Notes: The family of this 74-nucleotide RNA from Pararge aegeria is "mir-124 microRNA precursor family". It scores 59 bits against the family's covariance model. A reference for the family is Lai et al. (2003), "Computational identification of Drosophila microRNA genes", Genome Biol.

RNA sequence: GUCUCCUCGCGUUCACUGCAUUGCCUCUUAUGUUUUUAUAUUAGUCAUAAGGCACGCGGUGAAUGCCAAGAGCG
Numbered sequence: 001g002u003c004u005c006c007u008c009g010c011g012u013u014c015a016c017u018g019c020a021u022u023g024c025c026u027c028u029u030a031u032g033u034u035u036u037u038a039u040a041u042u043a044g045u046c047a048u049a050a051g052g053c054a055c056g057c058g059g060u061g062a063a064u065g066c067c068a069a070g071a072g073c074g
Base pairs, nucleotide, nucleotide: 003072004071005070009066010065011064012063013062014061015060016059018057019056024052025051026050029049030048031047032046
Dot-bracket structure: ..(((...((((((((.((....(((..((((.............)))))))...)).))))))))...)))..